[Rfam]
RNA sequence: ACCUUCGAGGAGCGCUGCAACGGUUACAUCCGCCAGGCUCGAAGGCUAUACCAUCUUGCAUUAAACGGCGCUCACUCUCU
Numbered sequence: 001a002c003c004u005u006c007g008a009g010g011a012g013c014g015c016u017g018c019a020a021c022g023g024u025u026a027c028a029u030c031c032g033c034c035a036g037g038c039u040c041g042a043a044g045g046c047u048a049u050a051c052c053a054u055c056u057u058g059c060a061u062u063a064a065a066c067g068g069c070g071c072u073c074a075c076u077c078u079c080u
Base pairs, nucleotide, nucleotide: 002045003044004043005042006041007040008039021032022031023030